[Rfam]
RNA: MIR159 microRNA precursor family
RNA sequence: UAUAUAUAUGCGGAGCUCCUUUUGGUCCAAAAUGAGGACUCUGAAAGAGGGCAUAGCAGGUCUGCUAGUUCAUGGAUACCUAUGGGUUGCAGUUGGAAACUAACACAUUUUUGCGCAGCUUAAGGGUUUGCAUGACCUGGGAGACGUGUUUCCCUUCCCCUUUCCUUAAUUGGAUUGAAGGGAGCUCCUCCUGUUUAUUUG
Numbered sequence: 001u002a003u004a005u006a007u008a009u010g011c012g013g014a015g016c017u018c019c020u021u022u023u024g025g026u027c028c029a030a031a032a033u034g035a036g037g038a039c040u041c042u043g044a045a046a047g048a049g050g051g052c053a054u055a056g057c058a059g060g061u062c063u064g065c066u067a068g069u070u071c072a073u074g075g076a077u078a079c080c081u082a083u084g085g086g087u088u089g090c091a092g093u094u095g096g097a098a099a100c101u102a103a104c105a106c107a108u109u110u111u112u113g114c115g116c117a118g119c120u121u122a123a124g125g126g127u128u129u130g131c132a133u134g135a136c137c138u139g140g141g142a143g144a145c146g147u148g149u150u151u152c153c154c155u156u157c158c159c160c161u162u163u164c165c166u167u168a169a170u171u172g173g174a175u176u177g178a179a180g181g182g183a184g185c186u187c188c189u190c191c192u193g194u195u196u197a198u199u200u201g
Stems, first nucleotide, its partner, number of pairs: 013187008023177007036164001062143002065140003071134004079126001